[Rfam]
RNA sequence: UUCUUAUCCAGAGAGAUGGAGGGGCUGGCCCUAUGAAAUCUCGGCAACAGGCUACGACUAGCACUGUGCCAAUUCCAGCAAGCGGAUGCUUGAUAGAUAAGAA
Number, nucleotide and partner (000 for none) at each position: 001u103002u102003c101004u100005u099006a098007u097008c096009c000010a000011g000012a000013g042014a041015g040016a039017u038018g000019g000020a000021g031022g030023g029024g000025c078026u077027g076028g075029c023030c022031c021032u000033a000034u000035g000036a000037a000038a017039u016040c015041u014042c013043g070044g069045c068046a067047a000048c066049a065050g000051g062052c061053u060054a059055c000056g000057a000058c000059u054060a053061g052062c051063a000064c000065u049066g048067u046068g045069c044070c043071a000072a000073u000074u095075c028076c027077a026078g025079c092080a091081a090082g089083c088084g000085g000086a000087u000088g083089c082090u081091u080092g079093a000094u000095a074096g008097a007098u006099a005100a004101g003102a002103a001
RNA: SAM riboswitch aptamer (S box leader)
Organism: Amphibacillus marinus